[Rfam]
A member of the RNA family "MIR5565 microRNA precursor family" from Sorghum bicolor, 106 nucleotides long. The source organism's lineage runs through Eukaryota, Magnoliopsida, commelinids, Panicoideae and Sorghum. Gene Ontology terms of the family: miRNA-mediated post-transcriptional gene silencing and RISC complex.
RNA sequence: GUUGUCGGAUUCACUUUAAUCCAUGUGUGUUGGGGUGGAAUUUAGUUCAAUUUUUACUUUAAAUUCUAAUCCACCUCAACACAUGUGGAUUGAUGUGAAUCCGACU
Numbered sequence: 001g002u003u004g005u006c007g008g009a010u011u012c013a014c015u016u017u018a019a020u021c022c023a024u025g026u027g028u029g030u031u032g033g034g035g036u037g038g039a040a041u042u043u044a045g046u047u048c049a050a051u052u053u054u055u056a057c058u059u060u061a062a063a064u065u066c067u068a069a070u071c072c073a074c075c076u077c078a079a080c081a082c083a084u085g086u087g088g089a090u091u092g093a094u095g096u097g098a099a100u101c102c103g104a105c106u
Base pairs, nucleotide, nucleotide: 004105005104006103007102008101009100010099011098012097013096014095016093017092018091019090020089021088022087023086024085025084026083027082028081029080030079031078032077035074036073037072038071039070041068045064046063047062